[Rfam]
RNA: Gag/pol translational readthrough site
RNA sequence: UAGGGAAGUCAGGGCUCAGACCCUCUCCCCGAGCCCAGGGUAACUCUUAAAGUGGAGGGGGA
Numbered sequence: 001u002a003g004g005g006a007a008g009u010c011a012g013g014g015c016u017c018a019g020a021c022c023c024u025c026u027c028c029c030c031g032a033g034c035c036c037a038g039g040g041u042a043a044c045u046c047u048u049a050a051a052g053u054g055g056a057g058g059g060g061g062a
Base pairs, nucleotide, nucleotide: 008041009040010039012036013035014034015033016031019028022060023059024058025057026056027055